RNA sequence: AAAACGACGAUGAACGAGAGAGUAUCUCCAUGAUCCUUGUUAUCAGCGAGCCGGGAAGGUGCAAGCCGGCACGGGACAUCGAGAGAAGCGCACUCGGGAGUCGGUUUCCUGAAAACGAAAGUAGGGAAACCCGGCAGCUGCCGUUAACGCAUCAAGUGGACUCCCGCCAGGUGGGGAUUGCCAUAAGAGUGGUACCGCGGACUCAUCCUCCGUCUCUUAA
Numbered sequence: 001a002a003a004a005c006g007a008c009g010a011u012g013a014a015c016g017a018g019a020g021a022g023u024a025u026c027u028c029c030a031u032g033a034u035c036c037u038u039g040u041u042a043u044c045a046g047c048g049a050g051c052c053g054g055g056a057a058g059g060u061g062c063a064a065g066c067c068g069g070c071a072c073g074g075g076a077c078a079u080c081g082a083g084a085g086a087a088g089c090g091c092a093c094u095c096g097g098g099a100g101u102c103g104g105u106u107u108c109c110u111g112a113a114a115a116c117g118a119a120a121g122u123a124g125g126g127a128a129a130c131c132c133g134g135c136a137g138c139u140g141c142c143g144u145u146a147a148c149g150c151a152u153c154a155a156g157u158g159g160a161c162u163c164c165c166g167c168c169a170g171g172u173g174g175g176g177a178u179u180g181c182c183a184u185a186a187g188a189g190u191g192g193u194a195c196c197g198c199g200g201a202c203u204c205a206u207c208c209u210c211c212g213u214c215u216c217u218u219a220a
Base pairs, nucleotide, nucleotide: 007101008100015096016095017094018093025084026083027082028081030079038073039072040071050070051069052068053067054066104130105129106128107127108126109125110124132143133142134141160179162177163176164175165174186217187216188215189214197213198212199211200210201209